[Rfam]
RNA sequence: UGAGUCAGCCAGGCGGCCGCGUCGGGACCCUCGGGUCCCGCCGAGGAACGUCCGGGCUCCGUAGGGCAGGGUGGUGGGUAACGCCCACCCGGGGUGACCCGCGGGACAGUGCCACAGAGAACAGACCGCCACGACGGACCGGUUCGCCGGGACGACGGGGUAAGGGUGAAACGGUGGUGCAAGAGACCACCAGCGCACCGGGUGACCGGUGCGGCUCGGCAAACCCCACCCGGAGCAAGGCCAGACAGGGAGCGUUCGAGGGUUGCCCGCCCGAGCUCCCGGGUAGGCCGCUGGAGGCGUGCGGCAACGUACGUCGUAGAUGGAUGGUCGCCACCCGCGCGGGGGAGACCGCGCGCGGGGACAGAACCCGGCGUACCGGCUGACUCAUCCG
Numbered sequence: 001u002g003a004g005u006c007a008g009c010c011a012g013g014c015g016g017c018c019g020c021g022u023c024g025g026g027a028c029c030c031u032c033g034g035g036u037c038c039c040g041c042c043g044a045g046g047a048a049c050g051u052c053c054g055g056g057c058u059c060c061g062u063a064g065g066g067c068a069g070g071g072u073g074g075u076g077g078g079u080a081a082c083g084c085c086c087a088c089c090c091g092g093g094g095u096g097a098c099c100c101g102c103g104g105g106a107c108a109g110u111g112c113c114a115c116a117g118a119g120a121a122c123a124g125a126c127c128g129c130c131a132c133g134a135c136g137g138a139c140c141g142g143u144u145c146g147c148c149g150g151g152a153c154g155a156c157g158g159g160g161u162a163a164g165g166g167u168g169a170a171a172c173g174g175u176g177g178u179g180c181a182a183g184a185g186a187c188c189a190c191c192a193g194c195g196c197a198c199c200g201g202g203u204g205a206c207c208g209g210u211g212c213g214g215c216u217c218g219g220c221a222a223a224c225c226c227c228a229c230c231c232g233g234a235g236c237a238a239g240g241c242c243a244g245a246c247a248g249g250g251a252g253c254g255u256u257c258g259a260g261g262g263u264u265g266c267c268c269g270c271c272c273g274a275g276c277u278c279c280c281g282g283g284u285a286g287g288c289c290g291c292u293g294g295a296g297g298c299g300u301g302c303g304g305c306a307a308c309g310u311a312c313g314u315c316g317u318a319g320a321u322g323g324a325u326g327g328u329c330g331c332c333a334c335c336c337g338c339g340c341g342g343g344g345g346a347g348a349c350c351g352c353g354c355g356c357g358g359g360g361a362c363a364g365a366a367c368c369c370g371g372c373g374u375a376c377c378g379g380c381u382g383a384c385u386c387a388u389c390c391g
Stems, first nucleotide, its partner, number of pairs: 001387010012332007020043002023040006048374003052371005057235004064268004069231005074088005089103001090101004104226002109224002111220003126165002128161003132157002135154002173191006193215001194213008239289004248280006260272004296315008
Dot-bracket structure: ((((((((((.(((((((.((.((((((......)))))).))....[[[.[[[[[((((...[[[[.((((((((((.....)))))(((((....)))).)((...(((((............(((((.((.((................)).)).)))..)).......((((((.......)))))).(((((((((....)))))))).)..)))..)))))))))))))...((((.....((((((......((((.]]]]))))..)))))).....))))......((((((((....))))))))..........)))))))..................................]]]]]]]]...))))))))))....